[Rfam]
RNA sequence: GCUGGUGGAGUGAUGACAUUUUUUUCCCCGUCAGAGCGACAGUGUUGACUUCACUGUUAAAGCCAGAUCACAUCUGACGCACCAGC
Numbered sequence: 001g002c003u004g005g006u007g008g009a010g011u012g013a014u015g016a017c018a019u020u021u022u023u024u025u026c027c028c029c030g031u032c033a034g035a036g037c038g039a040c041a042g043u044g045u046u047g048a049c050u051u052c053a054c055u056g057u058u059a060a061a062g063c064c065a066g067a068u069c070a071c072a073u074c075u076g077a078c079g080c081a082c083c084a085g086c
Base pairs, nucleotide, nucleotide: 001086002085003084004083005082006081007080008078